[Rfam]
RNA: mir-338 microRNA precursor family
RNA sequence: CCUGUAACAAUAUCCUGAUGCUGCCUGAGUGUGCCUCUGCUACUCCAGCAUCAGUGAUUUUGUUGCAGG
Number, nucleotide and partner (000 for none) at each position: 001c000002c000003u000004g000005u000006a064007a063008c062009a061010a060011u000012a058013u057014c056015c054016u053017g052018a051019u050020g049021c048022u047023g046024c000025c000026u000027g000028a000029g000030u000031g000032u000033g000034c000035c000036u000037c000038u000039g000040c000041u000042a000043c000044u000045c000046c023047a022048g021049c020050a019051u018052c017053a016054g015055u000056g014057a013058u012059u000060u010061u009062g008063u007064u006065g000066c000067a000068g000069g000